[Rfam]
mir-1204 microRNA precursor family: a 66-nucleotide RNA from Phocoena sinus. The family's consensus secondary structure was predicted with RNAalifold. The family has 4 seed sequences and 38 matches in Rfam 15.1.
RNA sequence: GCCUCGUGGCCUGGUCUCCACUAUCUGGGAGCAGUUACAUCUUGGAGGUGAGGAGUGCCUCGUGGU
Number, nucleotide and partner (000 for none) at each position: 001g000002c065003c064004u000005c062006g061007u000008g059009g058010c057011c000012u000013g000014g000015u054016c053017u052018c000019c050020a049021c048022u047023a000024u046025c045026u044027g043028g042029g041030a040031g000032c000033a000034g000035u000036u000037a000038c000039a000040u030041c029042u028043u027044g026045g025046a024047g022048g021049u020050g019051a000052g017053g016054a015055g000056u000057g010058c009059c008060u000061c006062g005063u000064g003065g002066u000